RNA sequence: AGAGGUCUCAAGUUUAAGGCUACAGAAAAAGUGCUCACAGCACAGCCUGUCAGAUUCCAACAAAAUCUGUGAAUUCUGCU
Numbered sequence: 001a002g003a004g005g006u007c008u009c010a011a012g013u014u015u016a017a018g019g020c021u022a023c024a025g026a027a028a029a030a031g032u033g034c035u036c037a038c039a040g041c042a043c044a045g046c047c048u049g050u051c052a053g054a055u056u057c058c059a060a061c062a063a064a065a066u067c068u069g070u071g072a073a074u075u076c077u078g079c080u
Stems, first nucleotide, its partner, number of pairs: 018047004024080002027077001029075002031043003051069006

About this RNA
A member of the RNA family "Mammalian CPEB3 ribozyme" from Alligator mississippiensis, 80 nucleotides long. The source organism's lineage runs through Eukaryota, Vertebrata, Sauria, Alligatorinae and Alligator. The match comes from Rfam's covariance-model search (47 bits).